[Rfam]
RNA sequence: ACUGUGGACUACACAAGCAAUGCAAGUAGUAAUUUACAAAAGCAUGUAGGAAGAAGCAGUAA
Numbered sequence: 001a002c003u004g005u006g007g008a009c010u011a012c013a014c015a016a017g018c019a020a021u022g023c024a025a026g027u028a029g030u031a032a033u034u035u036a037c038a039a040a041a042g043c044a045u046g047u048a049g050g051a052a053g054a055a056g057c058a059g060u061a062a
Base pairs, nucleotide, nucleotide: 001060002059003058004057005056009049010048011047012046013045021044022043023042029037030036031035
RNA: RAGATH-18 RNA